[Rfam]
RNA sequence: AGCAGAGUAGGCCAGUGCGCGUGAAGUGCCGGCGGGACGGGGAGUUGCCUGCCGGACGAAAAGAGUCUUUCUUGCGGUGCGCUGGCCGCAUCCCGCUGCU
Numbered sequence: 001a002g003c004a005g006a007g008u009a010g011g012c013c014a015g016u017g018c019g020c021g022u023g024a025a026g027u028g029c030c031g032g033c034g035g036g037a038c039g040g041g042g043a044g045u046u047g048c049c050u051g052c053c054g055g056a057c058g059a060a061a062a063g064a065g066u067c068u069u070u071c072u073u074g075c076g077g078u079g080c081g082c083u084g085g086c087c088g089c090a091u092c093c094c095g096c097u098g099c100u
Base pairs, nucleotide, nucleotide: 001100002099003098004097005096010087011086012085013084014083015082016081017080018079019078020076021075022074026057027056029055030054031053032052033051034050035049036048040093041092042091044089061073062072063071064070
This 100-nucleotide sequence from Anaerofilum sp. An201 belongs to the Rfam family "THF (Tetrahydrofolate) riboswitch aptamer". Rfam describes the family as follows. Tetrahydrofolate (THF) riboswitch was first reported for Ames et al. as an RNA motif in 5' untranslated (5'-UTR)regions of folate transport and biosynthesis genes in Firmicutes genomes. Gene Ontology term of the family: tetrahydrofolate metabolic process. On this family, see Ames et al., Chem Biol 2010: "A eubacterial riboswitch class that senses the coenzyme tetrahydrofolate". A search with the family's covariance model found it, with a score of 100 bits.